[Rfam]
RNA sequence: GCGCCUAUUGCGCCGAGCUCCAUCCGUAGGCCCGGGGAACGUCGACAGCGGAUGGAGGCCGGGGGACCCACGGUCCAUCGGACCCGAUGAGGAGCCAUUCUCCGGCUCCUAGGGGUGAAGUUCGGCGUCGUUGGGACACGACGCGGCCGGGCGACCUCUCCAGCCCGAACCCGACAGCUGACCUCGUAGGCGCCCAGAGAGAGGAUGU
Numbered sequence: 001g002c003g004c005c006u007a008u009u010g011c012g013c014c015g016a017g018c019u020c021c022a023u024c025c026g027u028a029g030g031c032c033c034g035g036g037g038a039a040c041g042u043c044g045a046c047a048g049c050g051g052a053u054g055g056a057g058g059c060c061g062g063g064g065g066a067c068c069c070a071c072g073g074u075c076c077a078u079c080g081g082a083c084c085c086g087a088u089g090a091g092g093a094g095c096c097a098u099u100c101u102c103c104g105g106c107u108c109c110u111a112g113g114g115g116u117g118a119a120g121u122u123c124g125g126c127g128u129c130g131u132u133g134g135g136a137c138a139c140g141a142c143g144c145g146g147c148c149g150g151g152c153g154a155c156c157u158c159u160c161c162a163g164c165c166c167g168a169a170c171c172c173g174a175c176a177g178c179u180g181a182c183c184u185c186g187u188a189g190g191c192g193c194c195c196a197g198a199g200a201g202a203g204g205a206u207g208u
Stems, first nucleotide, its partner, number of pairs: 011192004018058002060186005069112001113172003121146002149166004